[Rfam]
RNA sequence: UUCUUAUCAAGAGAAGCUAAGGGAACUGGCCCGUUGACGCUUCAGCAACCUCUGACUAUGUCAGAAAGGUGCUACCUCCAGCAAGAUUUUUUUCUUGAAAGAUAAGAG
Number, nucleotide and partner (000 for none) at each position: 001u108002u107003c106004u105005u104006a103007u102008c101009a000010a000011g000012a000013g043014a042015a041016g040017c039018u000019a000020a000021g032022g031023g030024a000025a000026c081027u080028g079029g078030c023031c022032c021033g000034u000035u000036g000037a000038c000039g017040c016041u015042u014043c013044a073045g072046c071047a070048a000049c069050c068051u065052c064053u063054g062055a000056c000057u000058a000059u000060g000061u000062c054063a053064g052065a051066a000067a000068g050069g049070u047071g046072c045073u044074a000075c000076c000077u100078c029079c028080a027081g026082c097083a096084a095085g094086a093087u000088u000089u000090u000091u000092u000093u086094c085095u084096u083097g082098a000099a000100a077101g008102a007103u006104a005105a004106g003107a002108g001

The record is a 108-nucleotide sequence from Radiobacillus deserti, which matches "SAM riboswitch aptamer (S box leader)" in Rfam. The SAM riboswitch is found upstream of a number of genes which code for proteins involved in methionine or cysteine biosynthesis in Gram-positive bacteria.